[Rfam]
Small nucleolar RNA SNORD109A: a 69-nucleotide RNA sequence from Microtus ochrogaster. The family has 7 seed sequences and 412 matches in Rfam 15.1. Rfam links the family to the GO terms RNA processing and nucleolus. Humans have two copies of the SNORD109 gene, SNORD109A and SNORD109B. The family's RNA type in Rfam is C/D-box small nucleolar RNA. The family's consensus secondary structure was predicted with WAR. The family is grouped with related families in Rfam's "SNORD74 clan".
RNA sequence: GGAUCGAUGAUGACAACAGGUUUCUGAGGACGCUGAUUGACUCAAACAUAAUCUCUCUCUCUGAGGUCC
Number, nucleotide and partner (000 for none) at each position: 001g069002g068003a067004u066005c065006g000007a000008u000009g000010a000011u000012g000013a000014c000015a000016a000017c000018a000019g000020g000021u000022u000023u000024c000025u000026g000027a000028g000029g000030a000031c000032g000033c000034u000035g000036a000037u000038u000039g000040a000041c000042u000043c000044a000045a000046a000047c000048a000049u000050a000051a000052u000053c000054u000055c000056u000057c000058u000059c000060u000061c000062u000063g000064a000065g005066g004067u003068c002069c001